Purine riboswitch aptamer: a 102-nucleotide sequence from Clostridium sp. CT7. The family's consensus secondary structure is taken from published work.
[Rfam]
RNA sequence: GAAAUUUAAUAACAGAUUACCCGUAUAUACUUGGAAAUAUGGUCUAAGCGUUUCUACCAGACUGCCGUAAAUUGUCUGACUAUGGGUGUUUAUAGGUAUUUU
Number, nucleotide and partner (000 for none) at each position: 001g000002a000003a000004a000005u000006u000007u000008a000009a000010u000011a000012a000013c000014a000015g000016a000017u000018u088019a087020c086021c085022c084023g083024u082025a081026u000027a000028u000029a000030c048031u047032u046033g045034g044035a043036a000037a000038u000039a000040u000041g000042g000043u035044c034045u033046a032047a031048g030049c000050g000051u000052u000053u000054c000055u000056a000057c000058c078059a077060g076061a075062c074063u000064g072065c000066c000067g000068u000069a000070a000071a000072u064073u000074g062075u061076c060077u059078g058079a000080c000081u025082a024083u023084g022085g021086g020087u019088g018089u000090u000091u000092a000093u000094a000095g000096g000097u000098a000099u000100u000101u000102u000